A member of the RNA family "Acido-Lenti-1 RNA" from Caulifigura coniformis, 47 nucleotides long. The family's RNA type in Rfam is small RNA. Taxonomically the source falls in Caulifigura (Bacteria, Pseudomonadati, Planctomycetota, Planctomycetia).

RNA sequence: CCACGGGCUGACGCCCGUGGCUACGACGUGCCGCCCCUGUCGGGGCU
Numbered sequence: 001c002c003a004c005g006g007g008c009u010g011a012c013g014c015c016c017g018u019g020g021c022u023a024c025g026a027c028g029u030g031c032c033g034c035c036c037c038u039g040u041c042g043g044g045g046c047u
Base pairs, nucleotide, nucleotide: 001020002019003018004017005016006015007014008013033046034045035044036043037042
Dot-bracket structure: ((((((((....))))))))............(((((....))))).